Description:
The family of this 147-nucleotide RNA sequence from Atopomonas hussainii is "Pseudomonas sRNA P14". The organism belongs to Atopomonas, within Bacteria.

RNA sequence: UUGUUCAUUUUUUAACCAAAACAAGCCAGCCCUGCUAAGACCUUGCAAUAAAUCUCUUUUUUUUUGCGCAAACUUGCAUCAGCCCCGUUUACUUACUACAAGUAAUCGGUACUAUUUACGCCGGCGAAUGUCCCGCUCGGAGCGGGA
Numbered sequence: 001u002u003g004u005u006c007a008u009u010u011u012u013u014a015a016c017c018a019a020a021a022c023a024a025g026c027c028a029g030c031c032c033u034g035c036u037a038a039g040a041c042c043u044u045g046c047a048a049u050a051a052a053u054c055u056c057u058u059u060u061u062u063u064u065u066g067c068g069c070a071a072a073c074u075u076g077c078a079u080c081a082g083c084c085c086c087g088u089u090u091a092c093u094u095a096c097u098a099c100a101a102g103u104a105a106u107c108g109g110u111a112c113u114a115u116u117u118a119c120g121c122c123g124g125c126g127a128a129u130g131u132c133c134c135g136c137u138c139g140g141a142g143c144g145g146g147a
Stems, first nucleotide, its partner, number of pairs: 037075003044068005050062003082125003087121002090118002094114002097111003101106001131147006